[Rfam]
RNA: Archaeal large subunit ribosomal RNA, nucleotides 2785 to 3070
Organism: Acidilobus saccharovorans
RNA sequence: GGCCGCCUGAGGGGAAGGUGCCCUCAGUACGAGAGGAACGGGGCGCCGCGGCCUCUAGUUUACCGGCUGUCCUGGUGGGCAAGCCGGGCAGCCACGCCGUAAGGGGUUACCGCUGAAAGCAUCUAAGCGGGAACCCCACCCCGAAAAUAGGCGGCCACUCGCUCCGUCGGCUCUGCCGGCGGGGCGACGAGGGCUCCCGUAGAAGACGGGGUUGAUGGGACGGGGGUGUAAGCCGCGAGGGCGCAAGCCCGAGCGGUUCAGCCCGCCGUUCCCAAUCGCCCGAGGC
Numbered sequence: 001g002g003c004c005g006c007c008u009g010a011g012g013g014g015a016a017g018g019u020g021c022c023c024u025c026a027g028u029a030c031g032a033g034a035g036g037a038a039c040g041g042g043g044c045g046c047c048g049c050g051g052c053c054u055c056u057a058g059u060u061u062a063c064c065g066g067c068u069g070u071c072c073u074g075g076u077g078g079g080c081a082a083g084c085c086g087g088g089c090a091g092c093c094a095c096g097c098c099g100u101a102a103g104g105g106g107u108u109a110c111c112g113c114u115g116a117a118a119g120c121a122u123c124u125a126a127g128c129g130g131g132a133a134c135c136c137c138a139c140c141c142c143g144a145a146a147a148u149a150g151g152c153g154g155c156c157a158c159u160c161g162c163u164c165c166g167u168c169g170g171c172u173c174u175g176c177c178g179g180c181g182g183g184g185c186g187a188c189g190a191g192g193g194c195u196c197c198c199g200u201a202g203a204a205g206a207c208g209g210g211g212u213u214g215a216u217g218g219g220a221c222g223g224g225g226g227u228g229u230a231a232g233c234c235g236c237g238a239g240g241g242c243g244c245a246a247g248c249c250c251g252a253g254c255g256g257u258u259c260a261g262c263c264c265g266c267c268g269u270u271c272c273c274a275a276u277c278g279c280c281c282g283a284g285g286c
Stems, first nucleotide, its partner, number of pairs: 001156008011142004017047008048100005056094001058092001063087005068081005103137003110130005191281004195211005216274003219270005224264003232257005239250003